[Rfam]
RNA: Group II catalytic intron D1-D4-3
Organism: Paenibacillus psychroresistens
RNA sequence: UCCAUCGCGAGAUGGAAUCUGAAGGAAGUCGGCGGCAAAUCACUGGUCUGAGGAACACGAACUUCAAAUAAGGCUUACAUUCGUUGGAUGAGGCUGCACAACAAGUCGAAGUCCUUGCUGCCGAAGGCGAGCGGAGUAAAUGAAGCAGAUAGAUGGAGAGAAAGAUAGCGUU
Dot-bracket structure: ((((((....))))))...........(.((....(...((.((((((((...........(((((......(((..(.(((((.((((..((((........))))...))))............))))).).)))...))))))))))...))).))....)....)).)